[Rfam]
Description:
This 71-nucleotide sequence from Morus notabilis belongs to the Rfam family "Small nucleolar RNA snoR60". It is annotated as a C/D-box small nucleolar RNA. Clan: SNORD101 clan. Gene Ontology terms of the family: nucleolus and RNA processing. The literature on the family includes a 2000 paper in J Biol Chem by Barneche et al., "Fibrillarin genes encode both a conserved nucleolar protein and a novel small nucleolar RNA involved in ribosomal RNA methylation in Arabidopsis thaliana".
RNA sequence: UAGCAUGUGACGAAGUUCUCGGAUUCCCCUUCAAGACAUUAUGGGUGAUGCUAAACCGAGAUUCUGAUGCU
Numbered sequence: 001u002a003g004c005a006u007g008u009g010a011c012g013a014a015g016u017u018c019u020c021g022g023a024u025u026c027c028c029c030u031u032c033a034a035g036a037c038a039u040u041a042u043g044g045g046u047g048a049u050g051c052u053a054a055a056c057c058g059a060g061a062u063u064c065u066g067a068u069g070c071u
Base pairs, nucleotide, nucleotide: 002071003070004069005068